[Rfam]
RNA sequence: UCCCCGUCACAACGGCUUCCUGGCGUGACGGCUGGUACCCAAUGGAGCA
Numbered sequence: 001u002c003c004c005c006g007u008c009a010c011a012a013c014g015g016c017u018u019c020c021u022g023g024c025g026u027g028a029c030g031g032c033u034g035g036u037a038c039c040c041a042a043u044g045g046a047g048c049a
Stems, first nucleotide, its partner, number of pairs: 004031007013022002015048003019045002
Rfam assigns this 49-nucleotide sequence from Salipiger bermudensis to the family "SAM/SAH riboswitch aptamer". A reference for the family is Weickhmann et al. (2019), "The structure of the SAM/SAH-binding riboswitch", Nucleic Acids Res. Taxonomically the source falls in Salipiger bermudensis (Bacteria, Pseudomonadati, Pseudomonadota, Alphaproteobacteria).